RNA sequence: UUUAAUGUUCGGCAAACUUAGCGAAAGUUAAGGACGCAAAGCUAUGGGACUAACGAUUUUAUAUCUAUGUCUGCCAGGUUGCUAUA
Numbered sequence: 001u002u003u004a005a006u007g008u009u010c011g012g013c014a015a016a017c018u019u020a021g022c023g024a025a026a027g028u029u030a031a032g033g034a035c036g037c038a039a040a041g042c043u044a045u046g047g048g049a050c051u052a053a054c055g056a057u058u059u060u061a062u063a064u065c066u067a068u069g070u071c072u073g074c075c076a077g078g079u080u081g082c083u084a085u086a
Base pairs, nucleotide, nucleotide: 012037013036017032018031019030020029021028022027040080041079042078043077045076046075047074048071049070050069055065056064057063

The family of this 86-nucleotide sequence from Pelosinus fermentans is "c-di-GMP-I riboswitch aptamer". Pairs were carried over by alignment from the consensus structure, which is taken from published work.